[Rfam]
This 322-nucleotide RNA from Sporosarcina sp. P19 belongs to the Rfam family "Group I catalytic intron". The source organism's lineage runs through Bacteria, Bacillati, Bacillota, Caryophanaceae and Sporosarcina. From the family's description: Group I catalytic introns are large self-splicing ribozymes. They catalyse their own excision from mRNA, tRNA and rRNA precursors in a wide range of organisms. Gene Ontology term of the family: Group I intron splicing. On this family, see Cate et al., Science 1996: "Crystal structure of a group I ribozyme domain: principles of RNA packing". A search with the family's covariance model found it, with a score of 90 bits.
RNA sequence: ACACAGUCGUCCUAACUGGUAACGGUUAGAGAGUACGACCGGGUGAAUUGCUGGAAACCCCUGAAACUGUUCUUGCUACAACGUAACUGGAAACGGUCAGCGUGAACGCUUGAAAAAAGAACAGAUUGGGCAAUCAGCAGCCAAGCUCCUGUCUCGAAAGAGUGGAGAAGGUUCAACGACUAGGAUAGACCAUCUAAGGCGUAAGCUAAGGUGAUGAAAUCCGUAGGGAACACAAGGUUGAGUAUCUUGUAAAUCCGAAGUGCCCGGCCCCUACCGAAAGUGGAGGGUGAAGAUAUAGUCUAGUCAUUAGUGAAAGCUAAUG
Numbered sequence: 001a002c003a004c005a006g007u008c009g010u011c012c013u014a015a016c017u018g019g020u021a022a023c024g025g026u027u028a029g030a031g032a033g034u035a036c037g038a039c040c041g042g043g044u045g046a047a048u049u050g051c052u053g054g055a056a057a058c059c060c061c062u063g064a065a066a067c068u069g070u071u072c073u074u075g076c077u078a079c080a081a082c083g084u085a086a087c088u089g090g091a092a093a094c095g096g097u098c099a100g101c102g103u104g105a106a107c108g109c110u111u112g113a114a115a116a117a118a119g120a121a122c123a124g125a126u127u128g129g130g131c132a133a134u135c136a137g138c139a140g141c142c143a144a145g146c147u148c149c150u151g152u153c154u155c156g157a158a159a160g161a162g163u164g165g166a167g168a169a170g171g172u173u174c175a176a177c178g179a180c181u182a183g184g185a186u187a188g189a190c191c192a193u194c195u196a197a198g199g200c201g202u203a204a205g206c207u208a209a210g211g212u213g214a215u216g217a218a219a220u221c222c223g224u225a226g227g228g229a230a231c232a233c234a235a236g237g238u239u240g241a242g243u244a245u246c247u248u249g250u251a252a253a254u255c256c257g258a259a260g261u262g263c264c265c266g267g268c269c270c271c272u273a274c275c276g277a278a279a280g281u282g283g284a285g286g287g288u289g290a291a292g293a294u295a296u297a298g299u300c301u302a303g304u305c306a307u308u309a310g311u312g313a314a315a316g317c318u319a320a321u322g
Base pairs, nucleotide, nucleotide: 001007002006016025017024018023039267040266041265042264044262045261049139050138051137052136053135054134059130060129061128063126140172141171147165148164153160154159176301178300179299180298181297182296269287270286271285272284274282307320308319309318310317311316